The family of this 104-nucleotide RNA from Pseudoalteromonas luteoviolacea is "Vibrio RNA AS9". It is annotated as an antisense RNA. About the family: Identified by direct cloning an parallel sequencing experiments with 5S/tRNA depletion. Confirmed by Northern blot. The match comes from Rfam's covariance-model search (75 bits).
RNA sequence: UUGCUGACAUCUCUCUUGCGUCAUAGUUAGGCAAAUAAGACCUCGGCCAUAUGUCGCCAUAAAAUUAAUCGCCUCGGGCGUGAUAUGCUCUGCCGCGAUGAUUA
Numbered sequence: 001u002u003g004c005u006g007a008c009a010u011c012u013c014u015c016u017u018g019c020g021u022c023a024u025a026g027u028u029a030g031g032c033a034a035a036u037a038a039g040a041c042c043u044c045g046g047c048c049a050u051a052u053g054u055c056g057c058c059a060u061a062a063a064a065u066u067a068a069u070c071g072c073c074u075c076g077g078g079c080g081u082g083a084u085a086u087g088c089u090c091u092g093c094c095g096c097g098a099u100g101a102u103u104a
Stems, first nucleotide, its partner, number of pairs: 003058001005056004009028001011026002014023001035050002039047001041045001066104005071096002075092003078088003